[Rfam]
RNA sequence: UUUAAAACGAUGAUAGAGGCAAGUAAUUUACAUGCGCCAUCUAGGGAGAAAAUGCCAAUGACUGAAAGCAUUUUUAUGGAAAGUAGUAAAUGAAAAUUUCACCUCUUGAGUUGGCACUUGGACCAGUAAUAACUGUAAAGGUGUACCGGUGAAAAGCCGUUAUAGGAAUGAAGUGAACUAAAACGUUUUUUUGUUUAGUUAAUUAGGGUGGUAACGCGAUUUAAACUCGUCCCUUCU
Numbered sequence: 001u002u003u004a005a006a007a008c009g010a011u012g013a014u015a016g017a018g019g020c021a022a023g024u025a026a027u028u029u030a031c032a033u034g035c036g037c038c039a040u041c042u043a044g045g046g047a048g049a050a051a052a053u054g055c056c057a058a059u060g061a062c063u064g065a066a067a068g069c070a071u072u073u074u075u076a077u078g079g080a081a082a083g084u085a086g087u088a089a090a091u092g093a094a095a096a097u098u099u100c101a102c103c104u105c106u107u108g109a110g111u112u113g114g115c116a117c118u119u120g121g122a123c124c125a126g127u128a129a130u131a132a133c134u135g136u137a138a139a140g141g142u143g144u145a146c147c148g149g150u151g152a153a154a155a156g157c158c159g160u161u162a163u164a165g166g167a168a169u170g171a172a173g174u175g176a177a178c179u180a181a182a183a184c185g186u187u188u189u190u191u192u193g194u195u196u197a198g199u200u201a202a203u204u205a206g207g208g209u210g211g212u213a214a215c216g217c218g219a220u221u222u223a224a225a226c227u228c229g230u231c232c233c234u235u236c237u
Base pairs, nucleotide, nucleotide: 007111008110015106016105017104018103026091027090028089029088030087031086037079038078039077048075049074050073051072052071053070054069055068114144115143116142117141118140119139147159148158149157176200177199178198179197180196181195182194205234206233207232208231216230217229218228219227
Shown here is a 237-nucleotide RNA sequence from Sutcliffiella cohnii, a member of the family "T-box leader".
The organism belongs to Sutcliffiella, within Bacteria.